RNA: c-di-AMP riboswitch aptamer (ydaO/yuaA leader)
Organism: Ectobacillus ponti
RNA sequence: AUUUCUAAAUCGCUGAAACCAAUGCGGUGCGGGGGAACCAGGUUUGUGGGUUUAUUUUGAAUCCAAGGGGUGAAUCCUUUUAGGUAGGGCUACUCAAGGUCCGAAUCCGUCAGCUAACCUCGUAAGCGUUCAUAUGAGAAGGA
Numbered sequence: 001a002u003u004u005c006u007a008a009a010u011c012g013c014u015g016a017a018a019c020c021a022a023u024g025c026g027g028u029g030c031g032g033g034g035g036a037a038c039c040a041g042g043u044u045u046g047u048g049g050g051u052u053u054a055u056u057u058u059g060a061a062u063c064c065a066a067g068g069g070g071u072g073a074a075u076c077c078u079u080u081u082a083g084g085u086a087g088g089g090c091u092a093c094u095c096a097a098g099g100u101c102c103g104a105a106u107c108c109g110u111c112a113g114c115u116a117a118c119c120u121c122g123u124a125a126g127c128g129u130u131c132a133u134a135u136g137a138g139a140a141g142g143a
Stems, first nucleotide, its partner, number of pairs: 011128004018028003029123006039067001068108003076084003087102004